[Rfam]
RNA sequence: GUAAUAGAAUAGGUGACUCAAGGGUGGCCGGCUCACUCCCCGUAAGAAAGGGGGUGGUGCCAUGUCAGUAUUUGAAGCAUUAUUGCUCAUGUUUACUUUCGGAGCAUUAAUUGUCUCUAUAUUGUCAUUCAACCAUAAAAAAUAACCCAUCCUUGAGUUAGCGCUCGAGUGGGAUGGGUUAUCCUUACCAAUCAGCCGAUUCCUUUGAAGGAAACCUGCUAUUACAUCGGCCGUUUCAAUGUUAGCGCAUUGG
Number, nucleotide and partner (000 for none) at each position: 001g225002u224003a223004a000005u221006a220007g219008a000009a217010u199011a000012g197013g196014u195015g000016a000017c157018u156019c155020a154021a153022g152023g151024g150025u000026g147027g146028c000029c000030g000031g000032c000033u057034c056035a055036c000037u054038c053039c052040c051041c050042g000043u000044a000045a000046g000047a000048a000049a000050g041051g040052g039053g038054g037055u035056g034057g033058u000059g000060c000061c000062a000063u000064g126065u000066c124067a123068g122069u121070a120071u000072u000073u000074g000075a000076a000077g092078c091079a090080u000081u000082a000083u000084u000085g000086c000087u000088c000089a000090u079091g078092u077093u000094u000095a000096c000097u000098u000099u000100c000101g118102g117103a116104g115105c000106a000107u000108u000109a000110a000111u000112u000113g000114u000115c104116u103117c102118u101119a000120u070121a069122u068123u067124g066125u000126c064127a000128u000129u000130c000131a000132a000133c000134c000135a000136u000137a000138a000139a000140a000141a000142a000143u000144a000145a000146c027147c026148c000149a000150u024151c023152c022153u021154u020155g019156a018157g017158u000159u000160a000161g000162c000163g000164c000165u000166c000167g186168a185169g184170u000171g000172g000173g000174a000175u000176g000177g000178g000179u000180u000181a000182u000183c000184c169185u168186u167187a000188c000189c000190a000191a000192u000193c000194a000195g014196c013197c012198g000199a010200u213201u212202c211203c210204u000205u000206u000207g000208a000209a000210g203211g202212a201213a200214a000215c000216c000217u009218g000219c007220u006221a005222u000223u003224a002225c001226a000227u000228c000229g000230g000231c000232c000233g000234u000235u000236u253237c252238a251239a250240u249241g248242u247243u000244a000245g000246c000247g242248c241249a240250u239251u238252g237253g236